[Rfam]
Overview:
The record is a 114-nucleotide sequence from Echinostoma caproni, which matches "Potassium channel RNA editing signal" in Rfam. For this family Rfam cites "Control of human potassium channel inactivation by editing of a small mRNA hairpin" (Bhalla et al., Nat Struct Mol Biol, 2004). By type it is a cis-regulatory element. The family's consensus secondary structure is taken from published work. Its family is annotated with adenosine to inosine editing in the Gene Ontology. A search with the family's covariance model found it, with a score of 93 bits.

RNA sequence: GUUGGUUACGGGGAUAUGCGUCCGGUUACCGUUUGGGGCAAAUUGAUCGGAUCGUUGUGUGCAAUUGCCGGAGUGUUGACGAUUGCCUUGCCAGUGCCUGUGAUCGUGUCUAAU
Dot-bracket structure: ((.((.(((((..(((.((((...............((((.........(...........)...........))))................)))).)))..))))).)).))